[Rfam]
RNA sequence: AAAUGCACUUAUUGUAAGUCGCUUUGGAUAAAAGCGUCUGCUAAAUAACAUGUA
Numbered sequence: 001a002a003a004u005g006c007a008c009u010u011a012u013u014g015u016a017a018g019u020c021g022c023u024u025u026g027g028a029u030a031a032a033a034g035c036g037u038c039u040g041c042u043a044a045a046u047a048a049c050a051u052g053u054a
Stems, first nucleotide, its partner, number of pairs: 013043001014041003020036006
Background:
Rfam assigns this 54-nucleotide sequence from Gasterosteus aculeatus to the family "UnaL2 LINE 3' element". The match comes from Rfam's covariance-model search (62 bits).